[Rfam]
RNA sequence: UGACUGAAAGUGUUGUCUGUCUGCCUGUCUACACUUGCUGUGCAGAACUUUCCGCGCCUGUACAGCAGGCACAGACAGGCAGACAGACUGCAGCCUGACC
Numbered sequence: 001u002g003a004c005u006g007a008a009a010g011u012g013u014u015g016u017c018u019g020u021c022u023g024c025c026u027g028u029c030u031a032c033a034c035u036u037g038c039u040g041u042g043c044a045g046a047a048c049u050u051u052c053c054g055c056g057c058c059u060g061u062a063c064a065g066c067a068g069g070c071a072c073a074g075a076c077a078g079g080c081a082g083a084c085a086g087a088c089u090g091c092a093g094c095c096u097g098a099c100c
Stems, first nucleotide, its partner, number of pairs: 017086003022081009034069001036067006043060003